[Rfam]
RNA sequence: UGCCUAAGGGCUAGUAUUACCCUUAGGCACAUCUGUAUCUUGUAGCA
Number, nucleotide and partner (000 for none) at each position: 001u029002g028003c027004c026005u025006a024007a023008g022009g021010g020011c000012u000013a000014g000015u000016a000017u000018u000019a000020c010021c009022c008023u007024u006025a005026g004027g003028c002029a001030c000031a000032u000033c000034u000035g000036u000037a000038u000039c000040u000041u000042g000043u000044a000045g000046c000047a000

The family of this 47-nucleotide RNA is "ssNA-helicase RNA". The family's RNA type in Rfam is small RNA. The family's consensus secondary structure is taken from published work.